Rfam assigns this 60-nucleotide RNA sequence from Eptesicus fuscus to the family "mir-1842 microRNA precursor family".
RNA sequence: UGGCUCUGCGAGGUCGGCUCAAGGUGGGUCUGGAUAUUGAGCAGGCCUGUCAGGGCGUUG
Number, nucleotide and partner (000 for none) at each position: 001u000002g000003g056004c055005u054006c053007u052008g051009c000010g000011a048012g047013g046014u045015c044016g000017g042018c041019u040020c039021a038022a037023g000024g035025u034026g000027g000028g000029u000030c000031u000032g000033g000034a025035u024036a000037u022038u021039g020040a019041g018042c017043a000044g015045g014046c013047c012048u011049g000050u000051c008052a007053g006054g005055g004056c003057g000058u000059u000060g000
The base pairs follow the family's consensus structure, which was predicted with RNAalifold. Gene Ontology terms of the family: RISC complex and miRNA-mediated post-transcriptional gene silencing. Taxonomically the source falls in Eptesicus (Eukaryota, Deuterostomia, Gnathostomata, Yangochiroptera).